[Rfam]
TPP riboswitch aptamer (THI element): a 115-nucleotide RNA from Sulfurospirillum cavolei.
Its family is annotated with thiamine pyrophosphate binding in the Gene Ontology.
The base pairs follow the family's consensus structure, which is taken from published work.
The source organism's lineage runs through Bacteria, Pseudomonadati, Epsilonproteobacteria, Sulfurospirillaceae and Sulfurospirillum.
It scores 55 bits against the family's covariance model.
The literature on the family includes a 2001 paper in Proc Natl Acad Sci U S A by Miranda-Rios et al., "A conserved RNA structure (thi box) is involved in regulation of thiamin biosynthetic gene expression in bacteria".
RNA sequence: CGUUGUCUGUGGGGGUGCUGUAAAAAGCUGAGAUCAUACCCCAAGAAGUCCAUUAAUGUGGCUUCACGAACCUGAUCCGGGUAAUGCCGGCGUAGGAAAUAAGGAGAUAAACCCA
Numbered sequence: 001c002g003u004u005g006u007c008u009g010u011g012g013g014g015g016u017g018c019u020g021u022a023a024a025a026a027g028c029u030g031a032g033a034u035c036a037u038a039c040c041c042c043a044a045g046a047a048g049u050c051c052a053u054u055a056a057u058g059u060g061g062c063u064u065c066a067c068g069a070a071c072c073u074g075a076u077c078c079g080g081g082u083a084a085u086g087c088c089g090g091c092g093u094a095g096g097a098a099a100u101a102a103g104g105a106g107a108u109a110a111a112c113c114c115a
Base pairs, nucleotide, nucleotide: 006103008101009100010099011065012064013063014062017028018027019026035058036057037056071096072095073094074093077090078089079088080087